[Rfam]
RNA sequence: UUCAAACUGCGUUAGCGGUUGUAAUGGCAUCCUUUUUUUUGCUGCCAUAUAUGGCAAAAAAAAGAUAUAAUGGAAGACGCGACCCUUG
Numbered sequence: 001u002u003c004a005a006a007c008u009g010c011g012u013u014a015g016c017g018g019u020u021g022u023a024a025u026g027g028c029a030u031c032c033u034u035u036u037u038u039u040u041g042c043u044g045c046c047a048u049a050u051a052u053g054g055c056a057a058a059a060a061a062a063a064g065a066u067a068u069a070a071u072g073g074a075a076g077a078c079g080c081g082a083c084c085c086u087u088g
Stems, first nucleotide, its partner, number of pairs: 015080003019076002024071002029066003035061010
RNA: Flavo-1 RNA